Rfam assigns this 80-nucleotide RNA from Pseudomonas putida to the family "narK RNA". Taxonomically the source falls in Pseudomonas putida (Bacteria, Pseudomonadota, Gammaproteobacteria, Pseudomonadaceae). It is one of the family's seed sequences. The family's consensus secondary structure is taken from published work.

RNA sequence: GGCCCAUUAAUUGCUGACUUACCUCCCAUCCAGGGCGGUCAACGUCGACAGCCCACACAACCUCACGACAAAGGCGCCGU
Numbered sequence: 001g002g003c004c005c006a007u008u009a010a011u012u013g014c015u016g017a018c019u020u021a022c023c024u025c026c027c028a029u030c031c032a033g034g035g036c037g038g039u040c041a042a043c044g045u046c047g048a049c050a051g052c053c054c055a056c057a058c059a060a061c062c063u064c065a066c067g068a069c070a071a072a073g074g075c076g077c078c079g080u
Base pairs, nucleotide, nucleotide: 034053035052036051038049039048040047